[Rfam]
The family of this 87-nucleotide sequence from Eubacterium sp. CAG:156 is "GA-cis RNA".
Rfam classes the family as a small RNA.
It scores 48 bits against the family's covariance model.

RNA sequence: GAAAAGAGGAAACAAAAUGAAUGAAGUUCAUUUUAAUAAGUGUUUACGCUAAACAGCCACUGACAAAAGGGAGGGGCAUUAUAUAUU
Numbered sequence: 001g002a003a004a005a006g007a008g009g010a011a012a013c014a015a016a017a018u019g020a021a022u023g024a025a026g027u028u029c030a031u032u033u034u035a036a037u038a039a040g041u042g043u044u045u046a047c048g049c050u051a052a053a054c055a056g057c058c059a060c061u062g063a064c065a066a067a068a069g070g071g072a073g074g075g076g077c078a079u080u081a082u083a084u085a086u087u
Stems, first nucleotide, its partner, number of pairs: 008047001010045004016032006056077003060073001064070001